[Rfam]
RNA: Iron response element I
Organism: Pan troglodytes
RNA sequence: CUAUCACUUGCUUCAACAGUGAUUGGACAGAAUAG
Numbered sequence: 001c002u003a004u005c006a007c008u009u010g011c012u013u014c015a016a017c018a019g020u021g022a023u024u025g026g027a028c029a030g031a032a033u034a035g
Stems, first nucleotide, its partner, number of pairs: 001035004007030002010028001012027005017021001